Shown here is a 79-nucleotide RNA from Triplophysa tibetana, a member of the family "Small nucleolar RNA SNORD72".
Rfam describes the family as follows. snoRNA HBII-240 belongs to the CD family of snoRNAs. It is the human orthologue of the mouse MBII-240 and is predicted to guide 2'O-ribose methylation of the large 28S rRNA at residue U4590.
The literature on the family includes a 2001 paper in EMBO J by Huttenhofer et al., "RNomics: an experimental approach that identifies 201 candidates for novel, small, non-messenger RNAs in mouse".
NCBI's taxonomy places the organism under Eukaryota, Actinopterygii, Otomorpha, Cypriniformes, Triplophysa.
The family's RNA type in Rfam is C/D-box small nucleolar RNA.

RNA sequence: UGCUUACCUGUGAUGACCAAAAAAUAAAUGUCUGAACAAAUGACUGUCCAGUGAUAUUAGUUUUAAACUGAGGUAAGCC
Numbered sequence: 001u002g003c004u005u006a007c008c009u010g011u012g013a014u015g016a017c018c019a020a021a022a023a024a025u026a027a028a029u030g031u032c033u034g035a036a037c038a039a040a041u042g043a044c045u046g047u048c049c050a051g052u053g054a055u056a057u058u059a060g061u062u063u064u065a066a067a068c069u070g071a072g073g074u075a076a077g078c079c
Base pairs, nucleotide, nucleotide: 002078003077004076005075006074007073008072